The family of this 164-nucleotide part of an RNA from Malassezia globosa is "Eukaryotic small subunit ribosomal RNA".
The organism belongs to Malassezia globosa, within Eukaryota.
Rfam links the family to the GO terms ribosome and structural constituent of ribosome.
On this family, see Yusupov et al., Science 2001: "Crystal structure of the ribosome at 5.5 A resolution".

RNA sequence: CCGCCCGUCGCUACUACCGAUUGAAUGGCUUAGUGAGCCUUUGGGAUUGGCAGCUUGUACCGGCAACGGUAGCAGGCAGCCGAAAACUUAGGCAAACUUGGUCAUUUAGAGGAAGUAAAAGUCGUAACAAGGUUUCUGUAGGUGAACCUGCAGAAGGAUCAUUA
Numbered sequence: 001c002c003g004c005c006c007g008u009c010g011c012u013a014c015u016a017c018c019g020a021u022u023g024a025a026u027g028g029c030u031u032a033g034u035g036a037g038c039c040u041u042u043g044g045g046a047u048u049g050g051c052a053g054c055u056u057g058u059a060c061c062g063g064c065a066a067c068g069g070u071a072g073c074a075g076g077c078a079g080c081c082g083a084a085a086a087c088u089u090a091g092g093c094a095a096a097c098u099u100g101g102u103c104a105u106u107u108a109g110a111g112g113a114a115g116u117a118a119a120a121g122u123c124g125u126a127a128c129a130a131g132g133u134u135u136c137u138g139u140a141g142g143u144g145a146a147c148c149u150g151c152a153g154a155a156g157g158a159u160c161a162u163u164a
Base pairs, nucleotide, nucleotide: 001131003128006124007123009121012117013116014115015114017112018111021108023107024106025105026104027103028102029101030100032098033097034096037093038092039091040090043087047083048082049081050080051079053077054076055075056074057073058071059070060069061068133156134155135154136153137152138151139150140149141148142147